RNA sequence: UAAUUUUUGUACGGGUAAAUCCUCAUAUGGUUGUGGCAUACUCACACCUAACUACUUAGAACUACCCAUUAUCGCAAGCCUGACUACAUCAUUCUUCUCGGGUUGGAGAGAAUUCAUCCUCGAGUACGGUUCCUCCUCUACAUAAGAUG
Numbered sequence: 001u002a003a004u005u006u007u008u009g010u011a012c013g014g015g016u017a018a019a020u021c022c023u024c025a026u027a028u029g030g031u032u033g034u035g036g037c038a039u040a041c042u043c044a045c046a047c048c049u050a051a052c053u054a055c056u057u058a059g060a061a062c063u064a065c066c067c068a069u070u071a072u073c074g075c076a077a078g079c080c081u082g083a084c085u086a087c088a089u090c091a092u093u094c095u096u097c098u099c100g101g102g103u104u105g106g107a108g109a110g111a112a113u114u115c116a117u118c119c120u121c122g123a124g125u126a127c128g129g130u131u132c133c134u135c136c137u138c139u140a141c142a143u144a145a146g147a148u149g
Base pairs, nucleotide, nucleotide: 004147005146006145007144008142009141014136015135025130026129028126029125031123032122

Rfam assigns this 149-nucleotide sequence from Populus tomentosa to the family "MIR480 microRNA precursor family". NCBI's taxonomy places the organism under Eukaryota, Viridiplantae, Mesangiospermae, Malpighiales, Populus. The family's consensus secondary structure was predicted with WAR. Its family is annotated with RISC complex and miRNA-mediated post-transcriptional gene silencing in the Gene Ontology. Rfam 15.1 lists 3,070 matches to the family in 171 species. The literature on the family includes a 2005 paper in Plant Cell by Lu et al., "Novel and mechanical stress-responsive MicroRNAs in Populus trichocarpa that are absent from Arabidopsis".